The record is a 597-nucleotide part of an RNA from Apolygus lucorum, which matches "Eukaryotic small subunit ribosomal RNA" in Rfam. Rfam 15.1 lists 75,755 matches to the family in 2,556 species.
RNA sequence: CGGUUAAAAAGCUCGUAGUUGGUUCUGCGUGCCACGCUGUCGGUUCGCCGCCUGCCGGUGUAACUGGCAUGCCGUGGCAUGUCCUGUCGGUGGCGUUCGGGAGCCUCGUCUAGGCGCCGGCCCUUGCCCAAAGCUUGGUGCUCGGAGGCCGGGGGUAUACCCGUUCGCCUACUCUAUCCUACCUAGGUGCUCUUCACCGAGUGUCGAGGUAGGCCGACACGUUUACUUUGAACAAAUUAGAGUGCUCAAAGCAGGCUGAAAUCUCUGCCUGAAUAGUGGUGCAUGGAAUAAUAAAACAGGACCUUGGUUCUAUUUUGUUGGUUCUUAAGAACACAAGGUAAUGAUCAAUACGGACAGGCGGGGGCAUUCGUAUUGCGACGUUAGAGGUGAAAUUCUUGGAUCGUCGCAAGACGCACAAGAGCGAAAGCAUUUGCCAAGUAUGUCUCGAUUGAUCAAGAACGAAAGUUAGAGGUUCGAAGGCGAUCAGAUACCGCCCUAGUUCUAACCAUAAACGAUGCCAGCCAGCGAUCCGCCGAUGUUCCUCCGAUGACUCGGCGGGGAGCUUCUUCCCGGGAAACCAAAGCUUUUGGGUUCCGG
Numbered sequence: 001c002g003g004u005u006a007a008a009a010a011g012c013u014c015g016u017a018g019u020u021g022g023u024u025c026u027g028c029g030u031g032c033c034a035c036g037c038u039g040u041c042g043g044u045u046c047g048c049c050g051c052c053u054g055c056c057g058g059u060g061u062a063a064c065u066g067g068c069a070u071g072c073c074g075u076g077g078c079a080u081g082u083c084c085u086g087u088c089g090g091u092g093g094c095g096u097u098c099g100g101g102a103g104c105c106u107c108g109u110c111u112a113g114g115c116g117c118c119g120g121c122c123c124u125u126g127c128c129c130a131a132a133g134c135u136u137g138g139u140g141c142u143c144g145g146a147g148g149c150c151g152g153g154g155g156u157a158u159a160c161c162c163g164u165u166c167g168c169c170u171a172c173u174c175u176a177u178c179c180u181a182c183c184u185a186g187g188u189g190c191u192c193u194u195c196a197c198c199g200a201g202u203g204u205c206g207a208g209g210u211a212g213g214c215c216g217a218c219a220c221g222u223u224u225a226c227u228u229u230g231a232a233c234a235a236a237u238u239a240g241a242g243u244g245c246u247c248a249a250a251g252c253a254g255g256c257u258g259a260a261a262u263c264u265c266u267g268c269c270u271g272a273a274u275a276g277u278g279g280u281g282c283a284u285g286g287a288a289u290a291a292u293a294a295a296a297c298a299g300g301a302c303c304u305u306g307g308u309u310c311u312a313u314u315u316u317g318u319u320g321g322u323u324c325u326u327a328a329g330a331a332c333a334c335a336a337g338g339u340a341a342u343g344a345u346c347a348a349u350a351c352g353g354a355c356a357g358g359c360g361g362g363g364g365c366a367u368u369c370g371u372a373u374u375g376c377g378a379c380g381u382u383a384g385a386g387g388u389g390a391a392a393u394u395c396u397u398g399g400a401u402c403g404u405c406g407c408a409a410g411a412c413g414c415a416c417a418a419g420a421g422c423g424a425a426a427g428c429a430u431u432u433g434c435c436a437a438g439u440a441u442g443u444c445u446c447g448a449u450u451g452a453u454c455a456a457g458a459a460c461g462a463a464a465g466u467u468a469g470a471g472g473u474u475c476g477a478a479g480g481c482g483a484u485c486a487g488a489u490a491c492c493g494c495c496c497u498a499g500u501u502c503u504a505a506c507c508a509u510a511a512a513c514g515a516u517g518c519c520a521g522c523c524a525g526c527g528a529u530c531c532g533c534c535g536a537u538g539u540u541c542c543u544c545c546g547a548u549g550a551c552u553c554g555g556c557g558g559g560g561a562g563c564u565u566c567u568u569c570c571c572g573g574g575a576a577a578c579c580a581a582a583g584c585u586u587u588u589g590g591g592u593u594c595c596g597g
Stems, first nucleotide, its partner, number of pairs: 001596003009593001011460001013458002018453003351447003355442002358439002363435004369413002373409008384395003421428002465506006475499001479495004517592003520585003524564003529559008538551003572579002